RNA: Small nucleolar RNA snR35
RNA sequence: AAGUAUUAUUAAUCGUGCGGAUUAAUUAAUCCAGGACUCUAAAACCGUGUUGCUUGAAUUAAUUUCUAUUUAGUUCCCAAGCGUCAAGUCCAUCGGAGAGAUCAUCAUUGGUUCAUCUUAGCGCCCUUUUGUUUUAGUUGCUUUUAUAUCACAACUUUGGUGAGGGCUGGUAGAACUGACAUCU
Numbered sequence: 001a002a003g004u005a006u007u008a009u010u011a012a013u014c015g016u017g018c019g020g021a022u023u024a025a026u027u028a029a030u031c032c033a034g035g036a037c038u039c040u041a042a043a044a045c046c047g048u049g050u051u052g053c054u055u056g057a058a059u060u061a062a063u064u065u066c067u068a069u070u071u072a073g074u075u076c077c078c079a080a081g082c083g084u085c086a087a088g089u090c091c092a093u094c095g096g097a098g099a100g101a102u103c104a105u106c107a108u109u110g111g112u113u114c115a116u117c118u119u120a121g122c123g124c125c126c127u128u129u130u131g132u133u134u135u136a137g138u139u140g141c142u143u144u145u146a147u148a149u150c151a152c153a154a155c156u157u158u159g160g161u162g163a164g165g166g167c168u169g170g171u172a173g174a175a176c177u178g179a180c181a182u183c184u
Stems, first nucleotide, its partner, number of pairs: 008026007030097003034091004052082004056076007116175001118173003123167005130162003134159001136157001137150001143148001